[Rfam]
RNA sequence: UUCCUGUUGAAGAUCUCAAGACCUACCGAUAGGAAGUGCCGUUUGACACUGUUAACAGCAGCUGCUUCACUCAGCUGCAGGUGUCCAUCCAUUGACCAAUACCUUUGUGGUUUGGUCUGGGAUGGAGGUCCCAUCUGCAGAUGGUUGACUUAGCUGUGGUGCGUGAUUUAAAUCGGGUCUCUGAGGGAA
Dot-bracket structure: (((((.....................................................................((((((((((((((((...(((((..(((.....))).)))))..))))))).....)))))))))............................................)))))

Shown here is a 189-nucleotide sequence from Digitaria exilis, a member of the family "Small nucleolar RNA Z112". Clan: SNORD49 clan. The literature on the family includes a 2002 paper in Nucleic Acids Res by Liang et al., "A novel gene organization: intronic snoRNA gene clusters from Oryza sativa". The family's consensus secondary structure was predicted with PFOLD. The organism belongs to Digitaria, within Eukaryota.